[Rfam]
RNA: c-di-GMP-I-GGC riboswitch aptamer
RNA sequence: UUUUGUUGUGCCAAACUUGCUGUGAAGCAAGGACGGGAAGCUAUGGGUCUUAGAUAAUAAGAUUGCCAGGUUGCCAAAA
Number, nucleotide and partner (000 for none) at each position: 001u079002u000003u076004u000005g000006u000007u000008g000009u000010g000011c036012c035013a000014a000015a000016c031017u030018u029019g028020c027021u026022g000023u000024g000025a000026a021027g020028c019029a018030a017031g016032g000033a000034c065035g012036g011037g000038a000039a072040g071041c070042u069043a000044u068045g067046g066047g063048u062049c061050u000051u000052a000053g000054a000055u000056a000057a000058u000059a000060a000061g049062a048063u047064u000065g034066c046067c045068a044069g042070g041071u040072u039073g000074c000075c000076a003077a000078a000079a001